[Rfam]
RNA sequence: UCCCUCUUCGAAGAGGGGCCGAAAAUGAGCUCGCUCAUUUUCAGGGGGA
Numbered sequence: 001u002c003c004c005u006c007u008u009c010g011a012a013g014a015g016g017g018g019c020c021g022a023a024a025a026u027g028a029g030c031u032c033g034c035u036c037a038u039u040u041u042c043a044g045g046g047g048g049a
Stems, first nucleotide, its partner, number of pairs: 001018007021042009

The family of this 49-nucleotide RNA from Gracilimonas mengyeensis is "Whalefall-1 RNA". A search with the family's covariance model found it, with a score of 39 bits. The organism belongs to Gracilimonas, within Bacteria. Rfam 15.1 lists 134 matches to the family in 26 species.